[Rfam]
RNA sequence: UUUUCGCUUACUUUUCUCAGAAAUUCUUUUGAUAAAAACAAGCGAUGAGACCUCACUAACGUACGACUUCGCCGUGGCAUAACACCGAAGUAGUGCGUUUUUUU
Numbered sequence: 001u002u003u004u005c006g007c008u009u010a011c012u013u014u015u016c017u018c019a020g021a022a023a024u025u026c027u028u029u030u031g032a033u034a035a036a037a038a039c040a041a042g043c044g045a046u047g048a049g050a051c052c053u054c055a056c057u058a059a060c061g062u063a064c065g066a067c068u069u070c071g072c073c074g075u076g077g078c079a080u081a082a083c084a085c086c087g088a089a090g091u092a093g094u095g096c097g098u099u100u101u102u103u104u
Stems, first nucleotide, its partner, number of pairs: 002047001004045006012037004017032003058099007066091006074085003